[Rfam]
RNA sequence: GCGAGACGCGGCGCCCGGUGGCCGGAAGCGACCGAUAAACUGGUCACGGAUCCAUGCCGGGCGCAGCUCCCGGCGGGUCCGCCAAUGAUCAGCCAGCAGCCGCUGCAACCCCAGGGAG
Numbered sequence: 001g002c003g004a005g006a007c008g009c010g011g012c013g014c015c016c017g018g019u020g021g022c023c024g025g026a027a028g029c030g031a032c033c034g035a036u037a038a039a040c041u042g043g044u045c046a047c048g049g050a051u052c053c054a055u056g057c058c059g060g061g062c063g064c065a066g067c068u069c070c071c072g073g074c075g076g077g078u079c080c081g082c083c084a085a086u087g088a089u090c091a092g093c094c095a096g097c098a099g100c101c102g103c104u105g106c107a108a109c110c111c112c113a114g115g116g117a118g
Base pairs, nucleotide, nucleotide: 048080049079050078051077052076053075056074058072059071060070061069094105095104096103097102
Notes: Streptomyces-metK RNA: a 118-nucleotide sequence from Streptomyces indicus. The family's consensus secondary structure is taken from published work. NCBI's taxonomy places the organism under Bacteria, Bacillati, Actinomycetota, Kitasatosporales, Streptomyces. It scores 119 bits against the family's covariance model. The family's RNA type in Rfam is small RNA.